[Rfam]
This 72-nucleotide sequence from Syrrhaptes paradoxus belongs to the Rfam family "Small nucleolar RNA SNORD26". On this family, see Tycowski et al., Nature 1996: "A mammalian gene with introns instead of exons generating stable RNA products".

RNA sequence: CCGCGGGGAUGAUCCCCCUGAACUCUCUCUUGCCGAUGGCUCCGUGGGGACACUGUGACUGUCCUGAGCGGC
Numbered sequence: 001c002c003g004c005g006g007g008g009a010u011g012a013u014c015c016c017c018c019u020g021a022a023c024u025c026u027c028u029c030u031u032g033c034c035g036a037u038g039g040c041u042c043c044g045u046g047g048g049g050a051c052a053c054u055g056u057g058a059c060u061g062u063c064c065u066g067a068g069c070g071g072c
Stems, first nucleotide, its partner, number of pairs: 001071004
Pairs were carried over by alignment from the consensus structure, which was predicted with PFOLD. The match comes from Rfam's covariance-model search (56 bits). Taxonomically the source falls in Syrrhaptes (Eukaryota, Sarcopterygii, Neoaves, Pteroclidae).